RNA sequence: CUAGCGUUCACCGCAAGGUUUCUACCGCUUCGGUGGAACACUUUUCCGCGGUGCGCCCCGAGCGUGCCGCAAUCCGGCCCCGCCGGACAUUGCCUAAACCCGCCGGCGCAGUCGCCGGC
Numbered sequence: 001c002u003a004g005c006g007u008u009c010a011c012c013g014c015a016a017g018g019u020u021u022c023u024a025c026c027g028c029u030u031c032g033g034u035g036g037a038a039c040a041c042u043u044u045u046c047c048g049c050g051g052u053g054c055g056c057c058c059c060g061a062g063c064g065u066g067c068c069g070c071a072a073u074c075c076g077g078c079c080c081c082g083c084c085g086g087a088c089a090u091u092g093c094c095u096a097a098a099c100c101c102g103c104c105g106g107c108g109c110a111g112u113c114g115c116c117g118g119c
Base pairs, nucleotide, nucleotide: 010019011018012017021037022036023035024034025033026032048070049069050068051067052066053065054064055063074086075085076084077083102119103118104117105116106115107114
The record is a 119-nucleotide sequence, which matches "Pseudomon-groES RNA" in Rfam.